[Rfam]
RNA sequence: CAAUAUGAUGGCGAUGGAGUUCGCCAUAAUUGCCGAUGAGGCUGAUGACUCCUACCAGAGU
Numbered sequence: 001c002a003a004u005a006u007g008a009u010g011g012c013g014a015u016g017g018a019g020u021u022c023g024c025c026a027u028a029a030u031u032g033c034c035g036a037u038g039a040g041g042c043u044g045a046u047g048a049c050u051c052c053u054a055c056c057a058g059a060g061u
Stems, first nucleotide, its partner, number of pairs: 010025004016052006032042003
Fluoride riboswitch aptamer (crcB RNA motif): a 61-nucleotide RNA from Fontibacillus panacisegetis. The family has 289 seed sequences and 2,293 matches in Rfam 15.1. It scores 56 bits against the family's covariance model. The family's consensus secondary structure is taken from published work. Lineage of the source: Bacteria > Bacillota > Bacilli > Paenibacillaceae > Fontibacillus.